[Rfam]
RNA sequence: ACGGAAUGAAUGACAGGCCAAGGUCGAAUCGGAAGAGAAGAGUCGAUCUCCCGGUCAGGAAUUCCCAGCACGGACACCAGGCACCCACGCGGAGCUCAAGCCACUCAAGGGCAGAAGCGUUGUGGGCCUGCGAGACUCGAUCACACGUGAGCGAGAACCUUGCACGAGUUGCAGAGGCGAACUUGCGGUAGUCGAGCCGACGCCGAGGCCGGACACACAACCCACCUAGCACGCUUGGUAACCCGGUAGUCCGUGCUAGCGGGCGGCGAGGUCGACGAGAGUCGACAGCACCGCCCGCUUUUACAU
Numbered sequence: 001a002c003g004g005a006a007u008g009a010a011u012g013a014c015a016g017g018c019c020a021a022g023g024u025c026g027a028a029u030c031g032g033a034a035g036a037g038a039a040g041a042g043u044c045g046a047u048c049u050c051c052c053g054g055u056c057a058g059g060a061a062u063u064c065c066c067a068g069c070a071c072g073g074a075c076a077c078c079a080g081g082c083a084c085c086c087a088c089g090c091g092g093a094g095c096u097c098a099a100g101c102c103a104c105u106c107a108a109g110g111g112c113a114g115a116a117g118c119g120u121u122g123u124g125g126g127c128c129u130g131c132g133a134g135a136c137u138c139g140a141u142c143a144c145a146c147g148u149g150a151g152c153g154a155g156a157a158c159c160u161u162g163c164a165c166g167a168g169u170u171g172c173a174g175a176g177g178c179g180a181a182c183u184u185g186c187g188g189u190a191g192u193c194g195a196g197c198c199g200a201c202g203c204c205g206a207g208g209c210c211g212g213a214c215a216c217a218c219a220a221c222c223c224a225c226c227u228a229g230c231a232c233g234c235u236u237g238g239u240a241a242c243c244c245g246g247u248a249g250u251c252c253g254u255g256c257u258a259g260c261g262g263g264c265g266g267c268g269a270g271g272u273c274g275a276c277g278a279g280a281g282u283c284g285a286c287a288g289c290a291c292c293g294c295c296c297g298c299u300u301u302u303a304c305a306u
Stems, first nucleotide, its partner, number of pairs: 003065002006062002011057002016052002021049002025045003029041002067257008077246002080243002085238003089234003094230002100112003119221006125210005130203003136196005145189002148185004152179002158176001160174005259298008268289001271286003

This 306-nucleotide RNA sequence from Rhodococcus tukisamuensis belongs to the Rfam family "Mycobacterium smegmatis small RNA 1". Rfam links the family to the GO term RNA polymerase binding. On this family, see Hnilicova et al., Nucleic Acids Res 2014: "Ms1, a novel sRNA interacting with the RNA polymerase core in mycobacteria". Rfam describes the family as follows. Mycobacterium smegmatis small RNA 1 is highly expressed during stationary phase of growth. Ms1 RNA directly interacts with RNA polymerase (RNAP), but in a different way than 6S, which is present in other bacteria.